The family of this 85-nucleotide RNA sequence from Haemophilus influenzae is "sRNA-Xcc1". It is one of the family's seed sequences. The base pairs follow the family's consensus structure, which was predicted with RNAalifold. The source organism's lineage runs through Bacteria, Pseudomonadati, Gammaproteobacteria, Haemophilus and Haemophilus influenzae. The family has 74 seed sequences and 421 matches in Rfam 15.1.
[Rfam]
RNA sequence: GAUCGACAGUGCGACUAAUACAAUACCGCAAGGGAAUACGUCCGCUGGAUUAUCUGACCAGUUUUGAGCUGUCGAUCGCCCUAAC
Numbered sequence: 001g002a003u004c005g006a007c008a009g010u011g012c013g014a015c016u017a018a019u020a021c022a023a024u025a026c027c028g029c030a031a032g033g034g035a036a037u038a039c040g041u042c043c044g045c046u047g048g049a050u051u052a053u054c055u056g057a058c059c060a061g062u063u064u065u066g067a068g069c070u071g072u073c074g075a076u077c078g079c080c081c082u083a084a085c
Stems, first nucleotide, its partner, number of pairs: 001077009013042003016038002026033002044062005